Notes: Shown here is a 142-nucleotide RNA from a Betaproteobacteria bacterium, a member of the family "Group II catalytic intron D1-D4-4". Group II introns are found in rRNA, tRNA and mRNA of organelles in fungi, plants and protists, and also in mRNA in bacteria. It scores 102 bits against the family's covariance model. A reference for the family is Bonen and Vogel (2001), "The ins and outs of group II introns", Trends Genet. Pairs were carried over by alignment from the consensus structure. The organism belongs to Betaproteobacteria, within Bacteria.
RNA sequence: CAGUGGGUGCAAAUCCCACCCGGCGAAAAUGCUCCAGCCGGAAGCAACCGGAGCAACUAUGGAGGUAACGAAAUGGUUGAAGCCUUCGGUGAAGCGUGCCACGACAUACGGUGGCAGCGCGAGUGUGCAGGCCGCAACGCGA
Numbered sequence: 001c002a003g004u005g006g007g008u009g010c011a012a013a014u015c016c017c018a019c020c021c022g023g024c025g026a027a028a029a030u031g032c033u034c035c036a037g038c039c040g041g042a043a044g045c046a047a048c049c050g051g052a053g054c055a056a057c058u059a060u061g062g063a064g065g066u067a068a069c070g071a072a073a074u075g076g077u078u079g080a081a082g083c084c085u086u087c088g089g090u091g092a093a094g095c096g097u098g099c100c101a102c103g104a105c106a107u108a109c110g111g112u113g114g115c116a117g118c119g120c121g122a123g124u125g126u127g128c129a130g131g132c133c134g135c136a137a138c139g140c141g142a
Base pairs, nucleotide, nucleotide: 020041021040022039023038024037049088050087051086052085053084054079055078056077057076058075059074064069097116098115099114100113101112102111119135120134121133